[Rfam]
RNA sequence: AAGGGCGUACCCGAAAACCCUAAGAACAGAGUAGGGA
Numbered sequence: 001a002a003g004g005g006c007g008u009a010c011c012c013g014a015a016a017a018c019c020c021u022a023a024g025a026a027c028a029g030a031g032u033a034g035g036g037a
Stems, first nucleotide, its partner, number of pairs: 002021004010036003

Shown here is a 37-nucleotide RNA from Chitinophaga pinensis, a member of the family "DUF805b RNA". Taxonomically the source falls in Chitinophaga pinensis (Bacteria, Chitinophagia, Chitinophagales, Chitinophaga). By type it is a cis-regulatory element. Rfam's curators put it in the seed alignment.